The family of this 120-nucleotide sequence from Burkholderia multivorans is "Betaproteobacteria-1 RNA".
It is annotated as a small RNA.
Rfam's curators put it in the seed alignment.
The source organism's lineage runs through Bacteria, Betaproteobacteria, Burkholderia, Burkholderia cepacia complex and Burkholderia multivorans.
RNA sequence: CGUUAGCGUGGACGGACAUGACCGGUGGCGCGCUGCGGAAAUUCGGGUGACCCACGGGGUAGGGUCGAGAUAGUCCGGCGCGAUGGCGAAGACAGAGCCGCGACCGGGUGUCUACUGGAU
Numbered sequence: 001c002g003u004u005a006g007c008g009u010g011g012a013c014g015g016a017c018a019u020g021a022c023c024g025g026u027g028g029c030g031c032g033c034u035g036c037g038g039a040a041a042u043u044c045g046g047g048u049g050a051c052c053c054a055c056g057g058g059g060u061a062g063g064g065u066c067g068a069g070a071u072a073g074u075c076c077g078g079c080g081c082g083a084u085g086g087c088g089a090a091g092a093c094a095g096a097g098c099c100g101c102g103a104c105c106g107g108g109u110g111u112c113u114a115c116u117g118g119a120u
Base pairs, nucleotide, nucleotide: 001038004035005034006033007032008031009030010029025055026054027053028052043078044077045076046075047074048073063105064104065103079102080101081100082099084097091116094113095112096111